[Rfam]
RNA sequence: UAACGUCUUCAGGGCGGGGCGGAACUCCCCACCGGCGGUAGGUCGCCCGGCUCCAGCAGCCGCGCCGACGAGCCCGCGAGCGCCUCCGGCAACGUACCGCCGCAGGGUUAGCAGAUCCGGUCCGAUGCCGGAGCCGACGGUCACAGUCCGGAUGAAAGAAGACGGCG
Numbered sequence: 001u002a003a004c005g006u007c008u009u010c011a012g013g014g015c016g017g018g019g020c021g022g023a024a025c026u027c028c029c030c031a032c033c034g035g036c037g038g039u040a041g042g043u044c045g046c047c048c049g050g051c052u053c054c055a056g057c058a059g060c061c062g063c064g065c066c067g068a069c070g071a072g073c074c075c076g077c078g079a080g081c082g083c084c085u086c087c088g089g090c091a092a093c094g095u096a097c098c099g100c101c102g103c104a105g106g107g108u109u110a111g112c113a114g115a116u117c118c119g120g121u122c123c124g125a126u127g128c129c130g131g132a133g134c135c136g137a138c139g140g141u142c143a144c145a146g147u148c149c150g151g152a153u154g155a156a157a158g159a160a161g162a163c164g165g166c167g
Stems, first nucleotide, its partner, number of pairs: 004164007017029003031147002033136002035077004072134002080112002116132005138150003

Description: The family of this 167-nucleotide RNA sequence from Novilysobacter arseniciresistens is "FMN riboswitch aptamer (RFN element)". The RFN element is a highly conserved domain that is found frequently in the 5'-untranslated regions of prokaryotic mRNAs that encode for flavin mononucleotide (FMN) biosynthesis and transport proteins. Its family is annotated with FMN binding in the Gene Ontology. The family's consensus secondary structure is taken from published work.